RNA sequence: CUGAAUAAUGGCGAUGGGGUUCGCCAAUCAAUAACCGCCGCAGCCUCGUGGAAGGUUGCGGCUGAUGACCCCUACCUUUGG
Number, nucleotide and partner (000 for none) at each position: 001c000002u000003g000004a000005a000006u000007a000008a000009u000010g025011g024012c023013g022014a000015u000016g072017g071018g070019g069020u068021u067022c013023g012024c011025c010026a000027a000028u000029c000030a000031a000032u000033a000034a000035c000036c000037g062038c061039c060040g059041c058042a057043g056044c055045c054046u053047c000048g000049u000050g000051g000052a000053a046054g045055g044056u043057u042058g041059c040060g039061g038062c037063u000064g000065a000066u000067g021068a020069c019070c018071c017072c016073u000074a000075c000076c000077u000078u000079u000080g000081g000

This 81-nucleotide sequence from Singulisphaera acidiphila belongs to the Rfam family "Fluoride riboswitch aptamer (crcB RNA motif)". The source organism's lineage runs through Bacteria, Planctomycetota, Isosphaeraceae, Singulisphaera and Singulisphaera acidiphila. Gene Ontology terms of the family: response to fluoride and positive regulation of gene expression.